GRIK4 3 prime UTR element: a 96-nucleotide RNA sequence from Lynx canadensis.
A search with the family's covariance model found it, with a score of 55 bits.
Pairs were carried over by alignment from the consensus structure, which was predicted with CMfinder.
The organism belongs to Lynx, within Eukaryota.

RNA sequence: UAGCCUCGGGGGGCGCCGGACACGCGGAGGCCAGGUGGGGAGGCGGGAGGGCCGGGGGGCAGAGGCUGCGCUCCGCAGGGAGCCCGGACUUGUACA
Numbered sequence: 001u002a003g004c005c006u007c008g009g010g011g012g013g014c015g016c017c018g019g020a021c022a023c024g025c026g027g028a029g030g031c032c033a034g035g036u037g038g039g040g041a042g043g044c045g046g047g048a049g050g051g052c053c054g055g056g057g058g059g060c061a062g063a064g065g066c067u068g069c070g071c072u073c074c075g076c077a078g079g080g081a082g083c084c085c086g087g088a089c090u091u092g093u094a095c096a
Base pairs, nucleotide, nucleotide: 003053005051006050007049011032012031014029